RNA sequence: UGUCGAAGCUCCAUCCACAAAUGGAUAAGAUUUCGGUCUUAGUGUAGACGAGUCCUUGAAGUUGAAGGAGCAAUACCCAAUCUCUUCCUCUGUCAAGAAGGUUGGUAUUGCUCCUUCAU
Numbered sequence: 001u002g003u004c005g006a007a008g009c010u011c012c013a014u015c016c017a018c019a020a021a022u023g024g025a026u027a028a029g030a031u032u033u034c035g036g037u038c039u040u041a042g043u044g045u046a047g048a049c050g051a052g053u054c055c056u057u058g059a060a061g062u063u064g065a066a067g068g069a070g071c072a073a074u075a076c077c078c079a080a081u082c083u084c085u086u087c088c089u090c091u092g093u094c095a096a097g098a099a100g101g102u103u104g105g106u107a108u109u110g111c112u113c114c115u116u117c118a119u
Stems, first nucleotide, its partner, number of pairs: 010025005064117013079102001083098004